About this RNA
Shown here is a 133-nucleotide sequence from Origma solitaria, a member of the family "Small nucleolar RNA SNORA13". Clan: SNORA13 clan. ACA13 is a member of the H/ACA class of snoRNA that guide the sites of modification of uridines to pseudouridines. The family's consensus secondary structure was predicted with CMfinder. Its family is annotated with RNA processing and nucleolus in the Gene Ontology. Lineage of the source: Eukaryota > Opisthokonta > Dinosauria > Acanthizidae > Origma.
RNA sequence: GGCCUUUGUGUUGCCCAUUCAUUCCUGUCCAGAAUGGAUGUGGUGUCAAAAAAGGCAAACAGGAAUUCUUGCUCAAACUGUUUUAGGAAGCUGGUUAUGUACCUUCCUCCUCUCUGUUUUUGCAAGGACAAAA
Dot-bracket structure: .((((((.((.((((((((((((.........)))))))).)))).))..))))))...........((((...((((......(((.((..((.......))...))..)))..))))...)))).......